[Rfam]
RNA sequence: GGUCAAUGAUGAGAUGUAAAAGGUCUGAUGUCUGGGUCUCCCAUCAGUCUCUCUUCCCCUCCCAGCGCCCCCUGCACAUUUCCCAGCAUGCUCUAGUCGUGCGUUGUUGGUUUGAGGUGGCAGCUGAUAUUCUGGACGUCUCUGCUCUAUGUACGAGUCUCUUAGAGAAUAAAGGAAGAUCUCAACAGCAGCGUCCGACAUAAUCACAACACACACACGAGGGCGAGACUGAUGGAGAACAUAAAACCAGCAUGUGAUCUCAAGUUUUCAAGCUGAGACC
Number, nucleotide and partner (000 for none) at each position: 001g280002g279003u278004c277005a000006a000007u000008g000009a000010u000011g000012a000013g000014a000015u000016g000017u000018a000019a000020a000021a000022g000023g000024u000025c000026u000027g000028a000029u000030g000031u000032c000033u000034g260035g259036g258037u257038c256039u000040c000041c235042c234043a233044u232045c231046a230047g229048u228049c000050u000051c000052u000053c000054u000055u000056c000057c000058c000059c221060u220061c219062c000063c126064a125065g124066c123067g000068c000069c120070c000071c000072c000073u000074g000075c000076a000077c000078a000079u000080u000081u000082c000083c110084c109085a108086g107087c106088a105089u000090g000091c101092u000093c000094u000095a000096g000097u000098c000099g000100u000101g091102c000103g000104u000105u088106g087107u086108u085109g084110g083111u000112u000113u000114g000115a000116g000117g000118u000119g000120g069121c000122a000123g066124c065125u064126g063127a000128u000129a000130u000131u000132c000133u000134g196135g195136a194137c193138g192139u191140c000141u000142c000143u000144g000145c000146u000147c000148u000149a000150u000151g000152u000153a000154c000155g181156a180157g000158u178159c000160u176161c175162u174163u173164a000165g000166a000167g000168a000169a000170u000171a000172a000173a163174g162175g161176a160177a000178g158179a000180u156181c155182u000183c000184a000185a000186c000187a000188g000189c000190a000191g139192c138193g137194u136195c135196c134197g000198a000199c000200a000201u000202a000203a000204u000205c000206a000207c000208a000209a000210c000211a000212c000213a000214c000215a000216c000217a000218c000219g061220a060221g059222g000223g000224c000225g000226a000227g000228a048229c047230u046231g045232a044233u043234g042235g041236a000237g000238a000239a000240c000241a000242u000243a000244a000245a000246a000247c000248c000249a000250g000251c000252a000253u000254g000255u000256g038257a037258u036259c035260u034261c000262a000263a000264g000265u000266u000267u000268u000269c000270a000271a000272g000273c000274u000275g000276a000277g004278a003279c002280c001
Rfam assigns this 280-nucleotide sequence from Triplophysa tibetana to the family "Small Cajal body specific RNA 6". Rfam 15.1 lists 1,309 matches to the family in 627 species. U88 is small Cajal body specific RNA (scaRNA). scaRNAs are a novel class of small nuclear RNAs which localise to the Cajal bodies. U88 is found associated with both fibrillarin and Gar1p and co-localises with coilin in Cajal bodies. The source organism's lineage runs through Eukaryota, Teleostomi, Neopterygii, Otomorpha and Triplophysa. A search with the family's covariance model found it, with a score of 89 bits. By type it is a small Cajal body RNA.